[Rfam]
RNA sequence: GGUUGAGAGUUUGAGGCCAUAGCAGAAGCAUUCACAGCAUUCCCAUGUCAGAUCCCAAAUGAAUCUGUGAAUUCUGCU
Numbered sequence: 001g002g003u004u005g006a007g008a009g010u011u012u013g014a015g016g017c018c019a020u021a022g023c024a025g026a027a028g029c030a031u032u033c034a035c036a037g038c039a040u041u042c043c044c045a046u047g048u049c050a051g052a053u054c055c056c057a058a059a060u061g062a063a064u065c066u067g068u069g070a071a072u073u074c075u076g077c078u
Base pairs, nucleotide, nucleotide: 013044015042016041021078022077023076024075025074026073027072028038029037049067050066051065052064053063055061
Source information:
This 78-nucleotide RNA from Crocodylus porosus belongs to the Rfam family "Mammalian CPEB3 ribozyme". The family's consensus secondary structure is taken from published work. The source organism's lineage runs through Eukaryota, Archelosauria, Longirostres, Crocodylidae and Crocodylus.